[Rfam]
Nucleotides: 083
Base pairs, nucleotide, nucleotide: 012037013036017032018031019030020029021028022027040077041076042075043074045073046072047071048068049067050066055062056061
Number, partner (000 for none) and nucleotide at each position: 001000a002000c003000a004000c005000g006000a007000u008000a009000a010000u011000g012037g013036c014000a015000a016000a017032c018031u019030u020029a021028u022027u023000g024000a025000a026000a027022a028021a029020u030019a031018a032017g033000g034000g035000c036013g037012c038000a039000a040077a041076g042075c043074u044000u045073c046072a047071g048068a049067c050066c051000u052000a053000a054000a055062g056061c057000a058000a059000a060000c061056g062055c063000u064000a065000u066050g067049g068048u069000g070000g071047c072046u073045g074043a075042g076041u077040u078000a079000c080000c081000g082000a083000a
c-di-GMP-I riboswitch aptamer: an 83-nucleotide sequence from Bacillus sp. FJAT-49736. NCBI's taxonomy places the organism under Bacteria, Bacillati, Bacillota, Bacillaceae, Bacillus. It scores 80 bits against the family's covariance model.